Small nucleolar RNA SNORD109A: a 67-nucleotide RNA sequence from Cavia porcellus. It is one of the family's seed sequences. Humans have two copies of the SNORD109 gene, SNORD109A and SNORD109B. Gene Ontology terms of the family: RNA processing and nucleolus. Its Rfam clan is "SNORD74 clan".
[Rfam]
RNA sequence: GGAUCGAUGAUGAGAAAACUUGUCUGAGGACGCUGAGGGACUAAUUACAGAUGGCAAUCUGAGGUCC
Numbered sequence: 001g002g003a004u005c006g007a008u009g010a011u012g013a014g015a016a017a018a019c020u021u022g023u024c025u026g027a028g029g030a031c032g033c034u035g036a037g038g039g040a041c042u043a044a045u046u047a048c049a050g051a052u053g054g055c056a057a058u059c060u061g062a063g064g065u066c067c
Stems, first nucleotide, its partner, number of pairs: 001067005
Dot-bracket structure: (((((.........................................................)))))